[Rfam]
RNA sequence: GCUUUUGUUAGAACCUUUUGAAUCGCUCCACUACUUGAUUCAAAAGGUUCUAACAAA
Numbered sequence: 001g002c003u004u005u006u007g008u009u010a011g012a013a014c015c016u017u018u019u020g021a022a023u024c025g026c027u028c029c030a031c032u033a034c035u036u037g038a039u040u041c042a043a044a045a046g047g048u049u050c051u052a053a054c055a056a057a
Stems, first nucleotide, its partner, number of pairs: 007054019
About this RNA
This 57-nucleotide sequence from Gossypium arboreum belongs to the Rfam family "Plastid-ccsA-ndhD-1 3UTR RNA". A search with the family's covariance model found it, with a score of 53 bits. For this family Rfam cites "Control of plastid gene expression: 3' inverted repeats act as mRNA processing and stabilizing elements, but do not terminate transcription" (Stern and Gruissem, Cell, 1987). The family is grouped with related families in Rfam's "Plastid-ccsA_ndhD 3UTR RNA clan".